[Rfam]
RNA sequence: CCAUUAAGUGAUGACGUGUCAGAUUAAGUGUCAUGUCAUCAUGUCUUGUCACUGACAUGCCAUUGCCACGUCAUUGAAGAGGGUGACCGAGCAAUGAGGUGUUUGUGACUAGGUGUUAUGACGUGAUAUUUCGUCUGUCACGUCAUCACUUAACGAAA
Numbered sequence: 001c002c003a004u005u006a007a008g009u010g011a012u013g014a015c016g017u018g019u020c021a022g023a024u025u026a027a028g029u030g031u032c033a034u035g036u037c038a039u040c041a042u043g044u045c046u047u048g049u050c051a052c053u054g055a056c057a058u059g060c061c062a063u064u065g066c067c068a069c070g071u072c073a074u075u076g077a078a079g080a081g082g083g084u085g086a087c088c089g090a091g092c093a094a095u096g097a098g099g100u101g102u103u104u105g106u107g108a109c110u111a112g113g114u115g116u117u118a119u120g121a122c123g124u125g126a127u128a129u130u131u132c133g134u135c136u137g138u139c140a141c142g143u144c145a146u147c148a149c150u151u152a153a154c155g156a157a158a
Base pairs, nucleotide, nucleotide: 002155004153005152006151007150008149009148010147011146012145013144014143015142016141017140018139020137021136022135023134024133026131027130028129029128030127031126032125033124034123035122036121037120038119039118041116042115043114044113045112046111048109049108050107051106052105054103055102056101057100058099070087071086072085073084074083